[Rfam]
RNA: Bacterial small subunit ribosomal RNA, nucleotides 918 to 1506
RNA sequence: UGACGGGGGCCCGCACAAGCGGUGGAGCAUGUGGUUUAAUUCGAUGGUACGCGAGGAACCUUACCUGGGUUUGACAUAUACUGGAAUGUGUUGGAGACAACAGAGCGUAGCAAUACGCCGGUAUACAGGUGCUGCAUGGCUGUCGUCAGCUCGUGCCGUGAGGUGUUGGGUUAAGUCCCGCAACGAGCGCAACCCCUACUGCCAGUUACCAGCAAGUAAUGUUGGGGACUCUGGCGGAACUGCCGGUGACAAACCGGAGGAAGGUGGGGAUGACGUCAAGUCAUCAUGGCCCUUAUGUCCAGGGCUACACACGUGCUACAAUGGUUGAAACAGAGCGAAGCGAAUCCGCAAGGUAGAGCAAAACGCAAAAAAGCAAUCGUAGUUCGGAUUGGAGUCUGAAACUCGACUCCAUGAAGUUGGAAUCGCUAGUAAUCGCGCAUCAGCACGGCGCGGUGAAUACGUUCCCGGGCCUUGUACACACCGCCCGUCACACCAUCCGAGUAGAGGGUACCCGAAGCCGGUAGUCUAACCCGAAAGGGAGGACGCUGUCGAAGGUACGUUUUGUAAGGAGGGUGAAGUCGUAACAAGG
Numbered sequence: 001u002g003a004c005g006g007g008g009g010c011c012c013g014c015a016c017a018a019g020c021g022g023u024g025g026a027g028c029a030u031g032u033g034g035u036u037u038a039a040u041u042c043g044a045u046g047g048u049a050c051g052c053g054a055g056g057a058a059c060c061u062u063a064c065c066u067g068g069g070u071u072u073g074a075c076a077u078a079u080a081c082u083g084g085a086a087u088g089u090g091u092u093g094g095a096g097a098c099a100a101c102a103g104a105g106c107g108u109a110g111c112a113a114u115a116c117g118c119c120g121g122u123a124u125a126c127a128g129g130u131g132c133u134g135c136a137u138g139g140c141u142g143u144c145g146u147c148a149g150c151u152c153g154u155g156c157c158g159u160g161a162g163g164u165g166u167u168g169g170g171u172u173a174a175g176u177c178c179c180g181c182a183a184c185g186a187g188c189g190c191a192a193c194c195c196c197u198a199c200u201g202c203c204a205g206u207u208a209c210c211a212g213c214a215a216g217u218a219a220u221g222u223u224g225g226g227g228a229c230u231c232u233g234g235c236g237g238a239a240c241u242g243c244c245g246g247u248g249a250c251a252a253a254c255c256g257g258a259g260g261a262a263g264g265u266g267g268g269g270a271u272g273a274c275g276u277c278a279a280g281u282c283a284u285c286a287u288g289g290c291c292c293u294u295a296u297g298u299c300c301a302g303g304g305c306u307a308c309a310c311a312c313g314u315g316c317u318a319c320a321a322u323g324g325u326u327g328a329a330a331c332a333g334a335g336c337g338a339a340g341c342g343a344a345u346c347c348g349c350a351a352g353g354u355a356g357a358g359c360a361a362a363a364c365g366c367a368a369a370a371a372a373g374c375a376a377u378c379g380u381a382g383u384u385c386g387g388a389u390u391g392g393a394g395u396c397u398g399a400a401a402c403u404c405g406a407c408u409c410c411a412u413g414a415a416g417u418u419g420g421a422a423u424c425g426c427u428a429g430u431a432a433u434c435g436c437g438c439a440u441c442a443g444c445a446c447g448g449c450g451c452g453g454u455g456a457a458u459a460c461g462u463u464c465c466c467g468g469g470c471c472u473u474g475u476a477c478a479c480a481c482c483g484c485c486c487g488u489c490a491c492a493c494c495a496u497c498c499g500a501g502u503a504g505a506g507g508g509u510a511c512c513c514g515a516a517g518c519c520g521g522u523a524g525u526c527u528a529a530c531c532c533g534a535a536a537g538g539g540a541g542g543a544c545g546c547u548g549u550c551g552a553a554g555g556u557a558c559g560u561u562u563u564g565u566a567a568g569g570a571g572g573g574u575g576a577a578g579u580c581g582u583a584a585c586a587a588g589g
Base pairs, nucleotide, nucleotide: 001478002477003475004474005473007472008471009470010469011468012467013466015462016461019426020425021424022423023422024319026317027316028315029314030313031312032311033310034308035307040055041054042053043052064303065302066301067300068299069298070297077125078124080122081121082120083119084118087104089102090101091100092099093098106117107116108115109114128292129291131290132289133288134287137286138285139281140280141279142277144275145274149188150187151186152185153184154183155164156163157162167180168179169178170177194269195268196267197266199237200236201235202234203233204232205231209226210225213224214223215222240260241259243257244256245255246254247253323378324377325376326375327374335366336365337364340359341358346353347352385416390411391410392409393408394407395406396405432454433453434452435451436450437449438448481588483585486581487580491575492574493573494572496570497569498568501565502564503563504562505561506560508558509557510556511555512554517550519548520547521546522545524544525543526542527541530539531538